[Rfam]
The family of this 133-nucleotide sequence from Heterocephalus glaber is "Small nucleolar RNA ACA64". Its family is annotated with RNA processing and nucleolus in the Gene Ontology.
RNA sequence: GUUUGUUGAAAAUAACCCCCAGCUCUGGCCUCAGUCUCGGUUGAGAUUUGGGGCCUAGAGGCCCAGGAGCCUUAGCUCGCUGCCCACUGCAGGUGUGGAGGGUGAACUGGACUGACUGCCUGGCCCCACAAGC
Numbered sequence: 001g002u003u004u005g006u007u008g009a010a011a012a013u014a015a016c017c018c019c020c021a022g023c024u025c026u027g028g029c030c031u032c033a034g035u036c037u038c039g040g041u042u043g044a045g046a047u048u049u050g051g052g053g054c055c056u057a058g059a060g061g062c063c064c065a066g067g068a069g070c071c072u073u074a075g076c077u078c079g080c081u082g083c084c085c086a087c088u089g090c091a092g093g094u095g096u097g098g099a100g101g102g103u104g105a106a107c108u109g110g111a112c113u114g115a116c117u118g119c120c121u122g123g124c125c126c127c128a129c130a131a132g133c
Stems, first nucleotide, its partner, number of pairs: 006051005013044001015042001022035003069124003077115003081111001085104003
By type it is an H/ACA-box small nucleolar RNA.
On this family, see Schattner et al., RNA 2006: "A computational screen for mammalian pseudouridylation guide H/ACA RNAs".
Taxonomically the source falls in Heterocephalus (Eukaryota, Euteleostomi, Sarcopterygii, Mammalia).
Pairs were carried over by alignment from the consensus structure, which was predicted with WAR.